[Rfam]
RNA sequence: UUGCAAGCCUUCAGUGUGCUUGAGUCUGCUGUGACUCCUGCAUUCCUACAGUGCUUGCCAGAACAGUUUUGAAACGGUUUUGCCCUGUUCCAUCCAGAGCAAGGUUAUAGAAAUUUCAGACAAUU
Dot-bracket structure: ..((((((........(((..(((((......)))))..)))..........))))))...........(((((...((((((.(((.......))).)))))).........))))).......
Rfam assigns this 125-nucleotide RNA sequence from Dipodomys ordii to the family "Small nucleolar RNA SNORA9". It is annotated as an H/ACA-box small nucleolar RNA. Rfam describes the family as follows. ACA9 is a member of the H/ACA class of snoRNA that guide the sites of modification of uridines to pseudouridines.